[Rfam]
RNA sequence: UGUAUAAUGAUGAUUCCAUGCGUGUCAGCUGACUCUGUAAACCCUCAUUGUGGUGUUGCUCUAGCUGGUGUUCUGCUAGCUUCAGUCCUCAGUGCAGCAGGGGUCCAGAGAUAUGAUCAAAUCCUUUCUUCUGAAUACA
Numbered sequence: 001u002g003u004a005u006a007a008u009g010a011u012g013a014u015u016c017c018a019u020g021c022g023u024g025u026c027a028g029c030u031g032a033c034u035c036u037g038u039a040a041a042c043c044c045u046c047a048u049u050g051u052g053g054u055g056u057u058g059c060u061c062u063a064g065c066u067g068g069u070g071u072u073c074u075g076c077u078a079g080c081u082u083c084a085g086u087c088c089u090c091a092g093u094g095c096a097g098c099a100g101g102g103g104u105c106c107a108g109a110g111a112u113a114u115g116a117u118c119a120a121a122u123c124c125u126u127u128c129u130u131c132u133g134a135a136u137a138c139a
Stems, first nucleotide, its partner, number of pairs: 001139004043102003048097004